RNA sequence: CACGAUAACGGCAAACCUAUCGAAAGGUAGGGACGCAAAGCUAAAGGGCCUUCCGAAAGAUGGCAGCCAGCUACCGAAG
Numbered sequence: 001c002a003c004g005a006u007a008a009c010g011g012c013a014a015a016c017c018u019a020u021c022g023a024a025a026g027g028u029a030g031g032g033a034c035g036c037a038a039a040g041c042u043a044a045a046g047g048g049c050c051u052u053c054c055g056a057a058a059g060a061u062g063g064c065a066g067c068c069a070g071c072u073a074c075c076g077a078a079g
Stems, first nucleotide, its partner, number of pairs: 001079001003076002011036002016031006034066001039072004046068002048064003
The record is a 79-nucleotide sequence from Bacillus sp. FJAT-26390, which matches "c-di-GMP-I-GGC riboswitch aptamer" in Rfam. The family's consensus secondary structure is taken from published work. Rfam links the family to the GO term cyclic-di-GMP binding. It scores 70 bits against the family's covariance model. The source organism's lineage runs through Bacteria, Bacillati, Caryophanales, Bacillaceae and Bacillus.